[Rfam]
RNA sequence: UCUACGGAGUGCGAUACCAAACGUUAGUAGCGAGACGGGAAUCCGUUAGCGAGAACGCGCACAUUGAACUAGAAA
Numbered sequence: 001u002c003u004a005c006g007g008a009g010u011g012c013g014a015u016a017c018c019a020a021a022c023g024u025u026a027g028u029a030g031c032g033a034g035a036c037g038g039g040a041a042u043c044c045g046u047u048a049g050c051g052a053g054a055a056c057g058c059g060c061a062c063a064u065u066g067a068a069c070u071a072g073a074a075a
Stems, first nucleotide, its partner, number of pairs: 001073004009062005022057003030050002036045002
The record is a 75-nucleotide RNA, which matches "RAGATH-18 RNA" in Rfam. Pairs were carried over by alignment from the consensus structure, which is taken from published work. Actinobacteria, Firmicutes, Fusobacteria, Thermotogae (1 example). By type it is a small RNA. It is one of the family's seed sequences.